Notes
Shown here is a 108-nucleotide sequence from Conger conger, a member of the family "Small nucleolar RNA SNORD46". Its Rfam clan is "SNORD46 clan". Pairs were carried over by alignment from the consensus structure. It scores 68 bits against the family's covariance model. Lineage of the source: Eukaryota > Opisthokonta > Metazoa > Elopocephala > Conger. From the family's description: U40 is a C/D box small nucleolar RNA, also known as snoZ153 in plants. The human sequence has also been annotated in the sequence databases as U46. U40 is encoded in intron 2 of the ribosomal protein S8 gene in human, and is hypothesised to guide methylation of 2'-O-ribose residues on 28S ribosomal RNA. This family represents vertebrate U40.

RNA sequence: AAUGUGGAUGAUGAGAACGUUACCUUAGGUAGGUUUUUGUUUUGACCGUUUUGGUCAAUGCGUUUGGCCUACCAAUGCUAGGAUUUGUCAUAGUUACACUGACACAUU
Numbered sequence: 001a002a003u004g005u006g007g008a009u010g011a012u013g014a015g016a017a018c019g020u021u022a023c024c025u026u027a028g029g030u031a032g033g034u035u036u037u038u039g040u041u042u043u044g045a046c047c048g049u050u051u052u053g054g055u056c057a058a059u060g061c062g063u064u065u066g067g068c069c070u071a072c073c074a075a076u077g078c079u080a081g082g083a084u085u086u087g088u089c090a091u092a093g094u095u096a097c098a099c100u101g102a103c104a105c106a107u108u
Base pairs, nucleotide, nucleotide: 001108002107003106004105005104006103